[Rfam]
RNA sequence: CUACAACCAAACCUUAUCUCCACCUCCACGUGGUGACCGCUGGGAGCUCUUUUUUAAAGAAAAGCUGCAGACGGAGAAAG
Numbered sequence: 001c002u003a004c005a006a007c008c009a010a011a012c013c014u015u016a017u018c019u020c021c022a023c024c025u026c027c028a029c030g031u032g033g034u035g036a037c038c039g040c041u042g043g044g045a046g047c048u049c050u051u052u053u054u055u056a057a058a059g060a061a062a063a064g065c066u067g068c069a070g071a072c073g074g075a076g077a078a079a080g
Stems, first nucleotide, its partner, number of pairs: 013080003017076001019074002022034003045066004050061004
Rfam assigns this 80-nucleotide RNA from Hermetia illucens to the family "drz-agam-1 ribozyme". NCBI's taxonomy places the organism under Eukaryota, Hexapoda, Pterygota, Stratiomyidae, Hermetia. Rfam links the family to the GO term catalytic activity. A reference for the family is Webb et al. (2009), "Widespread occurrence of self-cleaving ribozymes", Science. Pairs were carried over by alignment from the consensus structure, which is taken from published work. A search with the family's covariance model found it, with a score of 38 bits.